[Rfam]
RNA sequence: GAUCCAGCCAAUUAAUCUACUUAUCUGGAUGUGUUUCUGUAGAAAUUCAGAAAAAGCUGGCAAUCAUGAUGCCACUUUAAUGAGCCUUAUGAACAACUGAGGUCAUUGAGGUCCCUGAAAAUGGCUAUAAUA
Numbered sequence: 001g002a003u004c005c006a007g008c009c010a011a012u013u014a015a016u017c018u019a020c021u022u023a024u025c026u027g028g029a030u031g032u033g034u035u036u037c038u039g040u041a042g043a044a045a046u047u048c049a050g051a052a053a054a055a056g057c058u059g060g061c062a063a064u065c066a067u068g069a070u071g072c073c074a075c076u077u078u079a080a081u082g083a084g085c086c087u088u089a090u091g092a093a094c095a096a097c098u099g100a101g102g103u104c105a106u107u108g109a110g111g112u113c114c115c116u117g118a119a120a121a122u123g124g125c126u127a128u129a130a131u132a
Base pairs, nucleotide, nucleotide: 004060005059006058007057016043017042018041019040020039071125072124073123074122084112085111086110087109088108089107093103094102
Shown here is a 132-nucleotide sequence from Jaculus jaculus, a member of the family "Small nucleolar RNA SNORA33". Rfam links the family to the GO terms nucleolus and RNA processing. The family's consensus secondary structure was predicted with PFOLD. It is annotated as an H/ACA-box small nucleolar RNA. The family has 28 seed sequences and 1,176 matches in Rfam 15.1.